[Rfam]
Nucleotides: 133
Base pairs, nucleotide, nucleotide: 004021005020007018008017009016035056036055040052041051042050043049044048065127068126069125070124071123075120076119077118078117081115082114083113084112085111086110087109088108
Number, partner (000 for none) and nucleotide at each position: 001000a002000u003000c004021u005020g006000g007018c008017u009016u010000a011000g012000u013000u014000a015000g016009g017008a018007g019000g020005c021004a022000g023000a024000g025000a026000u027000c028000a029000a030000a031000u032000g033000g034000u035056u036055u037000g038000a039000u040052c041051a042050a043049u044048c045000u046000a047000u048044g049043g050042u051041u052040g053000g054000u055036a056035a057000u058000u059000c060000a061000c062000a063000a064000u065127c066000c067000a068126a069125g070124g071123c072000c073000u074000u075120c076119u077118u078117g079000a080000a081115a082114g083113g084112a085111c086110a087109a088108u089000c090000u091000u092000g093000c094000g095000a096000a097000u098000c099000u100000c101000a102000c103000c104000a105000u106000c107000a108088a109087u110086u111085g112084u113083u114082c115081u116000c117078c118077g119076a120075g121000c122000a123071g124070c125069c126068u127065g128000a129000g130000c131000u132000u133000c